Overview
Rfam assigns this 77-nucleotide RNA from Alligator mississippiensis to the family "Mammalian CPEB3 ribozyme". Rfam describes the family as follows. The mammalian CPEB3 ribozyme is a self cleaving RNA located in the second intron of the CPEB3 gene which belongs to a family of genes regulating messenger RNA polyadenylation. This ribozyme is highly conserved and found only in mammals. The CPEB3 ribozyme is structurally and biochemically related to the human hepatitis delta virus (HDV) ribozyme and the HDV ribozyme is proposed to have arisen from the human transcriptome. Taxonomically the source falls in Alligator (Eukaryota, Dipnotetrapodomorpha, Crocodylia, Alligatoridae). Pairs were carried over by alignment from the consensus structure, which is taken from published work.
RNA sequence: UGCUAACUAUAAUGGCCAUAGCAAAAGCAUUCACAUCAUGGUCCCUGUCAGAUUCCAGUGAAUUUGUGAAUUCUGCU
Numbered sequence: 001u002g003c004u005a006a007c008u009a010u011a012a013u014g015g016c017c018a019u020a021g022c023a024a025a026a027g028c029a030u031u032c033a034c035a036u037c038a039u040g041g042u043c044c045c046u047g048u049c050a051g052a053u054u055c056c057a058g059u060g061a062a063u064u065u066g067u068g069a070a071u072u073c074u075g076c077u
Base pairs, nucleotide, nucleotide: 014044015043016041017040020077021076022075023074025072026071027039049066050065051064052063053062054061055060